About this RNA: A. fumigatus sRNA Afu_309: a 279-nucleotide RNA from Hirsutella minnesotensis. The base pairs follow the family's consensus structure, which was predicted with WAR.

RNA sequence: CUUUUAAUAAACAUCACGGAUCUGUGCCCGGCGGUCCCUUGCCUUCGUGGUCAGGGUCGACUGCCGUGCAGCUCGAUAACUUCAUGGAGCCAUCAACUUGCUAUGGUGUCAAUUUCCUAUCGACAGGUCCUAGAACAACACGAUCUUUGACUGCCUCGUUCGUCGUCGCAAGACGGCUUGAGCGUUGUGGUUUCUGCAUCGUGAGGCGCUAUAUUCCAACCCUCUUUUCCAAGGCCGUCGGCCAGUGAGGUUGGGGAAAACCAUGGCGUGCCUACAGAA
Numbered sequence: 001c002u003u004u005u006a007a008u009a010a011a012c013a014u015c016a017c018g019g020a021u022c023u024g025u026g027c028c029c030g031g032c033g034g035u036c037c038c039u040u041g042c043c044u045u046c047g048u049g050g051u052c053a054g055g056g057u058c059g060a061c062u063g064c065c066g067u068g069c070a071g072c073u074c075g076a077u078a079a080c081u082u083c084a085u086g087g088a089g090c091c092a093u094c095a096a097c098u099u100g101c102u103a104u105g106g107u108g109u110c111a112a113u114u115u116c117c118u119a120u121c122g123a124c125a126g127g128u129c130c131u132a133g134a135a136c137a138a139c140a141c142g143a144u145c146u147u148u149g150a151c152u153g154c155c156u157c158g159u160u161c162g163u164c165g166u167c168g169c170a171a172g173a174c175g176g177c178u179u180g181a182g183c184g185u186u187g188u189g190g191u192u193u194c195u196g197c198a199u200c201g202u203g204a205g206g207c208g209c210u211a212u213a214u215u216c217c218a219a220c221c222c223u224c225u226u227u228u229c230c231a232a233g234g235c236c237g238u239c240g241g242c243c244a245g246u247g248a249g250g251u252u253g254g255g256g257a258a259a260a261c262c263a264u265g266g267c268g269u270g271c272c273u274a275c276a277g278a279a
Base pairs, nucleotide, nucleotide: 018130019129020128021127022126023125024124025123026069027068029066030065031064033062034061035060036059037056038055039054040053041052042050043049077122079120081119085111086110087109089107090106091105142200143199144198154187155184158183159182160181161180162179165178166176167175205272206271207270208267209266210265211264212263221256222255223254224253229250230249233243234242235241236240

The family has 10 seed sequences and 663 matches in Rfam 15.1. A search with the family's covariance model found it, with a score of 145 bits.